[Rfam]
Actino-pnp RNA: a 61-nucleotide RNA from Stackebrandtia albiflava.
Rfam classes the family as a cis-regulatory element.
The source organism's lineage runs through Bacteria, Bacillati, Actinomycetes, Glycomycetaceae and Stackebrandtia.
RNA sequence: UCCGGUCCUCGGUAGUGGCGCCCGGGCUCGAACAGCCCGUGCGUUUCGAUCGAAGACCGGC
Number, nucleotide and partner (000 for none) at each position: 001u000002c060003c059004g058005g057006u056007c055008c000009u053010c052011g051012g050013u049014a000015g000016u000017g045018g044019c043020g042021c041022c000023c039024g038025g037026g036027c035028u034029c000030g000031a000032a000033c000034a028035g027036c026037c025038c024039g023040u000041g021042c020043g019044u018045u017046u000047c000048g000049a013050u012051c011052g010053a009054a000055g007056a006057c005058c004059g003060g002061c000